Background:
This 361-nucleotide RNA from Jeotgalibaca sp. PTS2502 belongs to the Rfam family "Bacterial RNase P class B". A reference for the family is Brown (1999), "The Ribonuclease P Database", Nucleic Acids Res. Rfam classes the family as a ribozyme. The match comes from Rfam's covariance-model search (328 bits). Rfam describes the family as follows. Ribonuclease P (RNase P) is a ubiquitous endoribonuclease, found in archaea, bacteria and eukarya as well as chloroplasts and mitochondria. Its best characterised activity is the generation of mature 5'-ends of tRNAs by cleaving the 5'-leader elements of precursor-tRNAs. Cellular RNase Ps are ribonucleoproteins. RNA from bacterial RNase Ps retains its catalytic activity in the absence of the protein subunit, i.e. it is a ribozyme. Isolated eukaryotic and archaeal RNase P RNA has not been shown to retain its catalytic function, but is still essential for the catalytic activity of the holoenzyme. Although the archaeal and eukaryotic holoenzyme s have a much greater protein content than the bacterial ones, the RNA cores from all the three lineages are homologous -- helices corresponding to P1, P2, P3, P4, and P10/11 are common to all cellular RNase P RNAs. Yet, there is considerable sequence variation, particularly among the eukaryotic RNAs.

RNA sequence: AAUUCUGGGUAAUCGCGGUUUUUAAAUAAACUGAGGAAAGUCCAUGCUCACACAAGCUGUGAUGCUUGUAGUGUUCGUGCUUAGCGAAACAAUAAGCUAAGGCAAUUUUUAAUUGACGGCAGACAAAAAGGCUAAGGAUUUUAUCUAUGCCUGAGUAAUCUUGAAAGUGCCACAGUGACGAAGUAUUGAAGGAAACUUUAAUAGUGGAACGGGUAAACCCCUCGAGUGAGCAACCCAAACAUUGGUAGGGGCACUCUCUUUAGUAGGAAUCGAACGAAAAAGAGAGGCAGUAAUGCAGAUAGAUGAUUACCUCAGCAAAAAAGACCUGACUUUUUUGCGAGACAAAACAUGGCUUACAGGA
Number, nucleotide and partner (000 for none) at each position: 001a000002a000003u000004u361005c360006u359007g357008g311009g310010u309011a308012a307013u306014c305015g000016c033017g032018g031019u030020u029021u028022u000023u000024a000025a000026a000027u000028a021029a020030a019031c018032u017033g016034a000035g000036g000037a000038a355039a354040g353041u000042c352043c351044a350045u349046g348047c230048u229049c228050a227051c226052a069053c068054a067055a066056g065057c064058u000059g000060u000061g000062a000063u000064g057065c056066u055067u054068g053069u052070a000071g000072u000073g000074u000075u225076c224077g223078u000079g221080c101081u100082u099083a098084g097085c096086g000087a000088a000089a000090c000091a000092a000093u000094a000095a000096g085097c084098u083099a082100a081101g080102g117103c115104a114105a113106u112107u111108u000109u000110u000111a107112a106113u105114u104115g103116a000117c102118g220119g219120c000121a161122g160123a159124c000125a000126a000127a000128a000129a152130g151131g150132c149133u000134a000135a000136g146137g145138a144139u000140u000141u000142u000143a000144u138145c137146u136147a000148u000149g132150c131151c130152u129153g000154a000155g000156u000157a000158a000159u123160c122161u121162u000163g000164a000165a000166a000167g218168u217169g214170c213171c212172a000173c000174a000175g000176u000177g000178a000179c000180g000181a000182a000183g000184u203185a202186u201187u200188g199189a198190a197191g196192g000193a000194a000195a000196c191197u190198u189199u188200a187201a186202u185203a184204g000205u000206g000207g000208a000209a000210c000211g000212g171213g170214u169215a000216a000217a168218c167219c119220c118221c079222u000223c077224g076225a075226g051227u050228g049229a048230g047231c000232a000233a000234c250235c249236c248237a000238a000239a000240c000241a000242u000243u000244g000245g000246u000247a000248g236249g235250g234251g000252c000253a000254c286255u285256c284257u283258c282259u281260u280261u000262a000263g000264u000265a000266g000267g000268a000269a000270u000271c000272g000273a000274a000275c000276g000277a000278a000279a000280a260281a259282g258283a257284g256285a255286g254287g296288c295289a294290g000291u000292a000293a000294u289295g288296c287297a000298g000299a000300u000301a000302g000303a000304u000305g014306a013307u012308u011309a010310c009311c008312u000313c000314a000315g338316c337317a336318a335319a334320a333321a332322a331323g330324a000325c000326c000327u000328g000329a000330c323331u322332u321333u320334u319335u318336u317337g316338c315339g000340a000341g000342a000343c000344a000345a000346a000347a000348c046349a045350u044351g043352g042353c040354u039355u038356a000357c007358a000359g006360g005361a004